A member of the RNA family "PyrR binding site" from Loigolactobacillus backii, 111 nucleotides long. It scores 68 bits against the family's covariance model. Taxonomically the source falls in Loigolactobacillus (Bacteria, Bacillati, Bacillota, Lactobacillaceae). Rfam classes the family as a cis-regulatory element. The base pairs follow the family's consensus structure, which is taken from published work. A reference for the family is Bonner et al. (2001), "Molecular recognition of pyr mRNA by the Bacillus subtilis attenuation regulatory protein PyrR", Nucleic Acids Res.
RNA sequence: AGAUCCUUUAAGUUAGUCCCGUGAGGCUAAGAAGGAACUAUCAUAAUUAGUGCGUAAACUCUAACUAAAAACGAUAGAACCUCCUACCAACCGGGCAGGAGGUUCUUUUUU
Numbered sequence: 001a002g003a004u005c006c007u008u009u010a011a012g013u014u015a016g017u018c019c020c021g022u023g024a025g026g027c028u029a030a031g032a033a034g035g036a037a038c039u040a041u042c043a044u045a046a047u048u049a050g051u052g053c054g055u056a057a058a059c060u061c062u063a064a065c066u067a068a069a070a071a072c073g074a075u076a077g078a079a080c081c082u083c084c085u086a087c088c089a090a091c092c093g094g095g096c097a098g099g100a101g102g103u104u105c106u107u108u109u110u111u
Stems, first nucleotide, its partner, number of pairs: 004036006013030006042073001044071001047068005054061001076106010087095002